[Rfam]
The family of this 117-nucleotide RNA from Mesobacillus zeae is "ylbH leader". NCBI's taxonomy places the organism under Bacteria, Bacilli, Caryophanales, Bacillaceae, Mesobacillus. This family is a putative regulatory RNA structure that is found upstream of the ylbH gene in B. subtilis and related low GC Gram-positive bacteria. The literature on the family includes a 2004 paper in Proc Natl Acad Sci U S A by Barrick et al., "New RNA motifs suggest an expanded scope for riboswitches in bacterial genetic control". The base pairs follow the family's consensus structure.

RNA sequence: AAAUAAAAAACCCUGCAUUUCUGCAGGGUCCUUCUAUAUCCUCUUUUAGGACAGAAGGCAAAGGGAGAGGAGAAACCGGAGGAAGAACUUAUGGGGAAACGUAAGUCUUCUCCGCGG
Numbered sequence: 001a002a003a004u005a006a007a008a009a010a011c012c013c014u015g016c017a018u019u020u021c022u023g024c025a026g027g028g029u030c031c032u033u034c035u036a037u038a039u040c041c042u043c044u045u046u047u048a049g050g051a052c053a054g055a056a057g058g059c060a061a062a063g064g065g066a067g068a069g070g071a072g073a074a075a076c077c078g079g080a081g082g083a084a085g086a087a088c089u090u091a092u093g094g095g096g097a098a099a100c101g102u103a104a105g106u107c108u109u110c111u112c113c114g115c116g117g
Base pairs, nucleotide, nucleotide: 011028012027013026014025015024016023017022029065030064031063032062033061039051040050041049042048077114078113079112080111082110083109084108085107087106088105089104090103091102